[Rfam]
Nucleotides: 079
Stems, first nucleotide, its partner, number of pairs: 001079008010070003014065001016063011030049004
Number, partner (000 for none) and nucleotide at each position: 001079g002078u003077u004076u005075a006074u007073u008072u009000u010070g011069g012068g013000a014065g015000c016063g017062u018061u019060u020059g021058c022057u023056g024055u025054a026053u027000a028000a029000u030049u031048g032047g033046a034000c035000u036000a037000a038000a039000u040000g041000a042000a043000a044000u045000a046033u047032u048031u049030a050000g051000a052000g053026g054025u055024g056023c057022a058021g059020u060019a061018g062017g063016c064000a065014u066000g067000u068012c069011u070010u071000u072008g073007a074006g075005u076004a077003g078002a079001u
Annotation
A member of the RNA family "mir-1902 microRNA precursor family" from Suricata suricatta, 79 nucleotides long. Rfam links the family to the GO terms RISC complex and miRNA-mediated post-transcriptional gene silencing. The organism belongs to Suricata, within Eukaryota. The match comes from Rfam's covariance-model search (83 bits). The family has 2 seed sequences and 1,188 matches in Rfam 15.1.